[Rfam]
The family of this 99-nucleotide RNA sequence is "skipping-rope RNA". It is one of the family's seed sequences.
RNA sequence: UGUACGUGAGGAUAGAAAGAUGGCUAUCGCGCAUGAAAAUGUCAAGGGUAGGGAUGUAAAUCCUGAUGAGAUGUGGGAACUAUCGCCCCACCACGUACA
Number, nucleotide and partner (000 for none) at each position: 001u099002g098003u097004a096005c095006g094007u093008g092009a000010g000011g028012a027013u026014a025015g024016a000017a000018a000019g084020a083021u082022g081023g000024c015025u014026a013027u012028c011029g000030c068031g057032c056033a055034u054035g000036a000037a000038a000039a000040u000041g000042u000043c000044a000045a000046g000047g000048g000049u000050a000051g000052g000053g000054a034055u033056g032057u031058a000059a000060a000061u000062c000063c000064u000065g000066a000067u000068g030069a000070g000071a000072u000073g091074u090075g089076g088077g087078a000079a000080c000081u022082a021083u020084c019085g000086c000087c077088c076089c075090a074091c073092c008093a007094c006095g005096u004097a003098c002099a001